[Rfam]
RNA sequence: ACAACAACAAAAAAAAUGUGACACCCAAUAAAAACAACAGGUAACGGCUCUGACAUAACAAGAACAACACGGCAGAGGCGUAGCAAGCAGAUUUUUUUGGAGUCGACACGCUUUUCAGGGGUACGCCCCGCGGUCUGGCACAGAACAAUAAAACUACCUCAAGGUAGCAGCAGCCAGGUUCGGAUCAGCCAUGAUGAAAGCAGGUCAGCGCUCAAAAAAAUACGUUUGCUCUUGACCCCGCAUGGGGGUCGCCCGCAACACCAGGACAAGCCGACAAAAACAACAAUAGGCCGGUCCCAAUAAUAAAAAAAGAGCAGGCAACAACGCUUUGAGGGGAGCUUCGGCUCCCCUCAGUGCUUCCUGCCCUCUUCCUCCUUCUGCUUCU
Number, nucleotide and partner (000 for none) at each position: 001a000002c000003a000004a000005c000006a000007a000008c000009a000010a000011a000012a000013a000014a000015a000016a000017u000018g000019u000020g000021a000022c000023a000024c000025c000026c000027a000028a000029u000030a000031a000032a000033a000034a000035c000036a000037a000038c000039a000040g000041g000042u000043a000044a000045c080046g079047g000048c077049u076050c075051u074052g000053a000054c000055a000056u000057a000058a000059c000060a000061a000062g000063a000064a000065c000066a000067a000068c000069a000070c000071g000072g000073c000074a051075g050076a049077g048078g000079c046080g045081u000082a000083g000084c000085a000086a000087g000088c000089a000090g000091a000092u000093u000094u000095u217096u216097u215098u214099g213100g000101a000102g000103u000104c000105g000106a000107c000108a000109c210110g209111c208112u000113u000114u000115u000116c000117a000118g000119g000120g000121g000122u000123a000124c000125g000126c000127c000128c000129c000130g000131c182132g181133g180134u178135c177136u176137g175138g000139c000140a000141c000142a000143g000144a000145a000146c000147a000148a000149u000150a000151a000152a000153a000154c167155u166156a165157c164158c163159u000160c000161a000162a000163g158164g157165u156166a155167g154168c000169a000170g000171c000172a000173g000174c000175c137176a136177g135178g134179u000180u133181c132182g131183g000184a000185u000186c000187a000188g000189c000190c000191a000192u000193g000194a000195u000196g000197a000198a000199a000200g000201c000202a000203g000204g000205u000206c000207a000208g111209c110210g109211c000212u000213c099214a098215a097216a096217a095218a000219a000220a000221u000222a000223c000224g000225u000226u000227u000228g000229c000230u000231c000232u000233u000234g000235a249236c248237c247238c246239c245240g000241c000242a000243u000244g000245g239246g238247g237248g236249u235250c000251g000252c000253c000254c000255g000256c000257a000258a000259c000260a000261c000262c000263a367264g366265g365266a000267c363268a362269a000270g291271c290272c000273g000274a000275c000276a000277a000278a000279a000280a000281c000282a000283a000284c000285a000286a000287u000288a000289g000290g271291c270292c000293g000294g000295u000296c000297c000298c000299a000300a000301u000302a000303a000304u000305a000306a000307a000308a000309a000310a000311a000312g357313a000314g355315c354316a000317g000318g000319c000320a000321a000322c000323a000324a000325c000326g000327c000328u000329u000330u000331g352332a351333g350334g349335g348336g347337a346338g345339c344340u000341u000342c000343g000344g339345c338346u337347c336348c335349c334350c333351u332352c331353a000354g315355u314356g000357c312358u000359u000360c000361c000362u268363g267364c000365c265366c264367u263368c000369u000370u000371c000372c000373u000374c000375c000376u000377u000378c000379u000380g000381c000382u000383u000384c000385u000
Source information
This 385-nucleotide sequence from Pseudomonas putida belongs to the Rfam family "Pseudomonas sRNA CrcZ". By type it is a small RNA. The literature on the family includes a 2006 paper in Nucleic Acids Res by Livny et al., "Identification of 17 Pseudomonas aeruginosa sRNAs and prediction of sRNA-encoding genes in 10 diverse pathogens using the bioinformatic tool sRNAPredict2". The family has 19 seed sequences and 127 matches in Rfam 15.1. Taxonomically the source falls in Pseudomonas putida (Bacteria, Pseudomonadota, Gammaproteobacteria, Pseudomonadaceae).